RNA sequence: UUAACAGGGUCAUGAAAGGGACGCUAACAACGAGCCCUAGUGAAAGUAAUUUUGCGACACCGUCAAAUUGCGGGAAGUUCCUAAAGCCUCUACUACCGCGGCCGAUCGAAAGAUGCGGUGCAGCACCAGGGUAAUGACCUCGGGGAUGGUAAAAACGUAGAGGAUGCAACAAUGGAUGAUCCGCAGCCAAGUCCUAAUGCUAGUUGAUAGCGAUGGAUGCAGUUCAACGACUAGAUGUCGGUGGGUGAUGACCUUUGCUGGUUGUCGCCUAAGAUAUAGUCUCCUCCCAUGGCGAAAGCGAUGG
Numbered sequence: 001u002u003a004a005c006a007g008g009g010u011c012a013u014g015a016a017a018g019g020g021a022c023g024c025u026a027a028c029a030a031c032g033a034g035c036c037c038u039a040g041u042g043a044a045a046g047u048a049a050u051u052u053u054g055c056g057a058c059a060c061c062g063u064c065a066a067a068u069u070g071c072g073g074g075a076a077g078u079u080c081c082u083a084a085a086g087c088c089u090c091u092a093c094u095a096c097c098g099c100g101g102c103c104g105a106u107c108g109a110a111a112g113a114u115g116c117g118g119u120g121c122a123g124c125a126c127c128a129g130g131g132u133a134a135u136g137a138c139c140u141c142g143g144g145g146a147u148g149g150u151a152a153a154a155a156c157g158u159a160g161a162g163g164a165u166g167c168a169a170c171a172a173u174g175g176a177u178g179a180u181c182c183g184c185a186g187c188c189a190a191g192u193c194c195u196a197a198u199g200c201u202a203g204u205u206g207a208u209a210g211c212g213a214u215g216g217a218u219g220c221a222g223u224u225c226a227a228c229g230a231c232u233a234g235a236u237g238u239c240g241g242u243g244g245g246u247g248a249u250g251a252c253c254u255u256u257g258c259u260g261g262u263u264g265u266c267g268c269c270u271a272a273g274a275u276a277u278a279g280u281c282u283c284c285u286c287c288c289a290u291g292g293c294g295a296a297a298g299c300g301a302u303g304g
Stems, first nucleotide, its partner, number of pairs: 058243005064237002069185006079176003186223002191218004199211004227282001229281005245268009289302002292299002
RNA: Group I catalytic intron
Organism: Protomyces lactucae-debilis